[Rfam]
RNA: U4atac minor spliceosomal RNA
Organism: Saimiri boliviensis
RNA sequence: ACUCUUCUUUUCUUGGAGUUGCACUGGUGUCCAAUGAGUAUGUAAUGCAGGCAGUACUGCUAACACCUACAUAACACACCCCCAUCAACUAGGGCUUGGGUUUACCUUGAUGCAAUUUUGAAAAA
Numbered sequence: 001a002c003u004c005u006u007c008u009u010u011u012c013u014u015g016g017a018g019u020u021g022c023a024c025u026g027g028u029g030u031c032c033a034a035u036g037a038g039u040a041u042g043u044a045a046u047g048c049a050g051g052c053a054g055u056a057c058u059g060c061u062a063a064c065a066c067c068u069a070c071a072u073a074a075c076a077c078a079c080c081c082c083c084a085u086c087a088a089c090u091a092g093g094g095c096u097u098g099g100g101u102u103u104a105c106c107u108u109g110a111u112g113c114a115a116u117u118u119u120g121a122a123a124a125a
Stems, first nucleotide, its partner, number of pairs: 006018001008016002021060003026055001028053004038046002083112005090104004095099001